[Rfam]
RNA sequence: AGGGCAAUCCACGGGAGUCCCUGCGCGAGGGGCUGAGAGGGAGCACGCGAGCUCCGACCGUUCAACCUGAUCUGGUUCAUACCAGCGGAGGAAGGAACUCUCAAUGACGC
Numbered sequence: 001a002g003g004g005c006a007a008u009c010c011a012c013g014g015g016a017g018u019c020c021c022u023g024c025g026c027g028a029g030g031g032g033c034u035g036a037g038a039g040g041g042a043g044c045a046c047g048c049g050a051g052c053u054c055c056g057a058c059c060g061u062u063c064a065a066c067c068u069g070a071u072c073u074g075g076u077u078c079a080u081a082c083c084a085g086c087g088g089a090g091g092a093a094g095g096a097a098c099u100c101u102c103a104a105u106g107a108c109g110c
Base pairs, nucleotide, nucleotide: 008096009095010094011061012060013059014058017033018032019031020030021029040055041054042053043052044051066091067090068089072085073084074083075082
Dot-bracket structure: .......(((((((..(((((.......)))))......(((((......)))))..))))....(((...((((......))))...)))..)))..............